[Rfam]
RNA sequence: UGUGUGUAGUGGUUUGGUAGUGUACUUUUAGUUAGCUGUUGUACAUACACCAGCAACUAAAUACACUUCCACAUUAUUGCAUGCG
Numbered sequence: 001u002g003u004g005u006g007u008a009g010u011g012g013u014u015u016g017g018u019a020g021u022g023u024a025c026u027u028u029u030a031g032u033u034a035g036c037u038g039u040u041g042u043a044c045a046u047a048c049a050c051c052a053g054c055a056a057c058u059a060a061a062u063a064c065a066c067u068u069c070c071a072c073a074u075u076a077u078u079g080c081a082u083g084c085g
Stems, first nucleotide, its partner, number of pairs: 001085013015071003019067006027061007040049003
Dot-bracket structure: (((((((((((((.(((.((((((..(((((((......(((....))).....))))))))))))).))).)))))))))))))